[Rfam]
RNA sequence: GUUUAUCAAAACAACGAAAGCCCUACCUCUCUUUCGUCCUUGCGACUCCGCUGAUCGCGCCAGUUGAAUUGUAAAUUAUCUCCUAGC
Numbered sequence: 001g002u003u004u005a006u007c008a009a010a011a012c013a014a015c016g017a018a019a020g021c022c023c024u025a026c027c028u029c030u031c032u033u034u035c036g037u038c039c040u041u042g043c044g045a046c047u048c049c050g051c052u053g054a055u056c057g058c059g060c061c062a063g064u065u066g067a068a069u070u071g072u073a074a075a076u077u078a079u080c081u082c083c084u085a086g087c
Base pairs, nucleotide, nucleotide: 034067035066036065039063040062041059042058043057044056045055047053
BsrC: an 87-nucleotide RNA sequence from Bacillus sp. FJAT-49736. Rfam 15.1 lists 572 matches to the family in 553 species. The 301 nucleotide sequence from Kouji Nakamura has been trimmed to a highly conserved ~85 nucleotide long core to form this family. A search with the family's covariance model found it, with a score of 64 bits. The base pairs follow the family's consensus structure, which was predicted with CMfinder. It is annotated as a small RNA. On this family, see Saito et al., Gene 2008: "Novel small RNA-encoding genes in the intergenic regions of Bacillus subtilis". Lineage of the source: Bacteria > Bacillati > Bacilli > Caryophanales > Bacillus.